[Rfam]
RNA: Archaeal large subunit ribosomal RNA, nucleotides 645 to 901
RNA sequence: GAGUGUAUUGUUGUGGCGAGCUUAAAAUCUUUAAGGUUGUAGGCGAAGGGAAACCAACAAGUUCGCAGUUUAUCCAGGAACGGGGUCUUAAGGGCCCGGAGUCACAGCGAUACGACCCGAAACCGGGCGAUCUAGGCCAGGGCAAGGUGAAGUCCCUCAACUGAGGGAUGGAGGCCUGCAGAGGUGUUGCCGUUCGAAGCACUCUUCUGACCUUGGUCUAGGGGUGAAAGGCCAAUCGAGCCCGGAAAUAGCUGGUU
Numbered sequence: 001g002a003g004u005g006u007a008u009u010g011u012u013g014u015g016g017c018g019a020g021c022u023u024a025a026a027a028u029c030u031u032u033a034a035g036g037u038u039g040u041a042g043g044c045g046a047a048g049g050g051a052a053a054c055c056a057a058c059a060a061g062u063u064c065g066c067a068g069u070u071u072a073u074c075c076a077g078g079a080a081c082g083g084g085g086u087c088u089u090a091a092g093g094g095c096c097c098g099g100a101g102u103c104a105c106a107g108c109g110a111u112a113c114g115a116c117c118c119g120a121a122a123c124c125g126g127g128c129g130a131u132c133u134a135g136g137c138c139a140g141g142g143c144a145a146g147g148u149g150a151a152g153u154c155c156c157u158c159a160a161c162u163g164a165g166g167g168a169u170g171g172a173g174g175c176c177u178g179c180a181g182a183g184g185u186g187u188u189g190c191c192g193u194u195c196g197a198a199g200c201a202c203u204c205u206u207c208u209g210a211c212c213u214u215g216g217u218c219u220a221g222g223g224g225u226g227a228a229a230g231g232c233c234a235a236u237c238g239a240g241c242c243c244g245g246a247a248a249u250a251g252c253u254g255g256u257u
Stems, first nucleotide, its partner, number of pairs: 005113013020044004026038004048055002061081004068074001084096004116255002119252001123245006132221011143209001145177004152169007181206004186202002189200002223233003